[Rfam]
RNA sequence: CUGUUAUCACCAUGUUCCGCUGACUCCCGUCAGCAGCAUGCCCAGGUAGCCACGAUCCUCAAGGCUACGACGCGGUUCCGCCGCGUUGAUCAUCCCAGUUCGCACCGGCAUCCAUGCGCGAACGCCCAUCGGCUUCCGAUGGGAUGC
Dot-bracket structure: ..........((((.(..((((((....))))))).)))).....((((((..[[[[.....))))))(((((((.....)))))))]]]]..........................(((....((((((((...)))))))).)))
The record is a 147-nucleotide RNA sequence, which matches "radC RNA" in Rfam. The base pairs follow the family's consensus structure, which is taken from published work.